[Rfam]
RNA: ZMP/ZTP riboswitch aptamer (pfl RNA motif)
Organism: Cloacibacillus evryensis
RNA sequence: UCCGGUCGCGAUCCCUGACGGAUAAUUGUGGAGCACCACAGUGGGGUCGCGGUCAUAUAGAGCCGACCGUCUGGGCAGCAUUC
Numbered sequence: 001u002c003c004g005g006u007c008g009c010g011a012u013c014c015c016u017g018a019c020g021g022a023u024a025a026u027u028g029u030g031g032a033g034c035a036c037c038a039c040a041g042u043g044g045g046g047u048c049g050c051g052g053u054c055a056u057a058u059a060g061a062g063c064c065g066a067c068c069g070u071c072u073g074g075g076c077a078g079c080a081u082u083c
Stems, first nucleotide, its partner, number of pairs: 004054009015043001017071005028039004062076003